This 65-nucleotide RNA sequence belongs to the Rfam family "L2-Alphaproteobacteria ribosomal protein leader".

RNA sequence: GCGGACCUACGGGGCCGUUCACCAUAGGGGCCAUUUGGCCCCGAAAGCAAAACGGAAGACAGCAA
Numbered sequence: 001g002c003g004g005a006c007c008u009a010c011g012g013g014g015c016c017g018u019u020c021a022c023c024a025u026a027g028g029g030g031c032c033a034u035u036u037g038g039c040c041c042c043g044a045a046a047g048c049a050a051a052a053c054g055g056a057a058g059a060c061a062g063c064a065a
Stems, first nucleotide, its partner, number of pairs: 001018004006014003027042006
The base pairs follow the family's consensus structure, which is taken from published work. It is one of the family's seed sequences. On this family, see Eckert and Weinberg, BMC Microbiol 2020: "Discovery of 20 novel ribosomal leader candidates in bacteria and archaea". By type it is a cis-regulatory leader.